The family of this 145-nucleotide RNA sequence from Mola mola is "Small nucleolar RNA SNORA79". The organism belongs to Mola, within Eukaryota. Gene Ontology terms of the family: nucleolus and RNA processing. The family has 25 seed sequences and 944 matches in Rfam 15.1.
RNA sequence: CGACGUCGGUUCCUCCUCCUGUCGGCAGCCAGUCAGGAGGAUUUUACGACCUCGCAGAGAGAUCGGGGUCUUUUUCACCCAGGAAGCUUCCGGCUGCUGCAGCCAAUCGGCAAACGGCUUCCUGGUUUUGCGAGACCCGACAGAU
Numbered sequence: 001c002g003a004c005g006u007c008g009g010u011u012c013c014u015c016c017u018c019c020u021g022u023c024g025g026c027a028g029c030c031a032g033u034c035a036g037g038a039g040g041a042u043u044u045u046a047c048g049a050c051c052u053c054g055c056a057g058a059g060a061g062a063u064c065g066g067g068g069u070c071u072u073u074u075u076c077a078c079c080c081a082g083g084a085a086g087c088u089u090c091c092g093g094c095u096g097c098u099g100c101a102g103c104c105a106a107u108c109g110g111c112a113a114a115c116g117g118c119u120u121c122c123u124g125g126u127u128u129u130g131c132g133a134g135a136c137c138c139g140a141c142a143g144a145u
Stems, first nucleotide, its partner, number of pairs: 001054003005050004014041005020035002023032001067137006079125010093111004
Dot-bracket structure: (((.((((.....(((((.((.(........).)).))))).....)))).)))............((((((......((((((((((....((((...........))))....))))))))))......))))))........